[Rfam]
RNA sequence: CGAGGUCUUCGUGUACCCCGUGCGCCCCCACUCGUGGCGCACACAUGGGGAAUGGUCAAGACCGAG
Numbered sequence: 001c002g003a004g005g006u007c008u009u010c011g012u013g014u015a016c017c018c019c020g021u022g023c024g025c026c027c028c029c030a031c032u033c034g035u036g037g038c039g040c041a042c043a044c045a046u047g048g049g050g051a052a053u054g055g056u057c058a059a060g061a062c063c064g065a066g
Stems, first nucleotide, its partner, number of pairs: 004063006016050005023039004
Rfam assigns this 66-nucleotide sequence from Leishmania donovani to the family "Trypanosomatid snoRNA TB9Cs4H1". Rfam's curators put it in the seed alignment. The family's consensus secondary structure was predicted with WAR. The family has 4 seed sequences and 39 matches in Rfam 15.1. The family's RNA type in Rfam is H/ACA-box small nucleolar RNA. NCBI's taxonomy places the organism under Eukaryota, Kinetoplastea, Trypanosomatida, Leishmania, Leishmania donovani.